[Rfam]
RNA sequence: GGGGACAACGAGACACAACCUGGAUGGAGGCGGGGGACCCACUGGUCCACCGAAUAUAGGGAGACCUGGAAUCGAGCCGAUUCCUUGGGGUGAAGCCGUCAUCGUUUCGAUGAAGACGGCCGGGCGACCUCUCCAGCCCGAACCCGACAGCUGACCUCGCGGGCGCUUCAGAGAGGAACC
Numbered sequence: 001g002g003g004g005a006c007a008a009c010g011a012g013a014c015a016c017a018a019c020c021u022g023g024a025u026g027g028a029g030g031c032g033g034g035g036g037a038c039c040c041a042c043u044g045g046u047c048c049a050c051c052g053a054a055u056a057u058a059g060g061g062a063g064a065c066c067u068g069g070a071a072u073c074g075a076g077c078c079g080a081u082u083c084c085u086u087g088g089g090g091u092g093a094a095g096c097c098g099u100c101a102u103c104g105u106u107u108c109g110a111u112g113a114a115g116a117c118g119g120c121c122g123g124g125c126g127a128c129c130u131c132u133c134c135a136g137c138c139c140g141a142a143c144c145c146g147a148c149a150g151c152u153g154a155c156c157u158c159g160c161g162g163g164c165g166c167u168u169c170a171g172a173g174a175g176g177a178a179c180c
Stems, first nucleotide, its partner, number of pairs: 030160006040087002088145003096119004122139004
c-di-AMP riboswitch aptamer (ydaO/yuaA leader): a 180-nucleotide RNA sequence from Mycolicibacterium aurum. NCBI's taxonomy places the organism under Bacteria, Bacillati, Actinomycetota, Mycobacteriales, Mycobacterium (subgen. Mycolicibacterium). Gene Ontology terms of the family: cyclic-di-AMP binding and regulation of gene expression.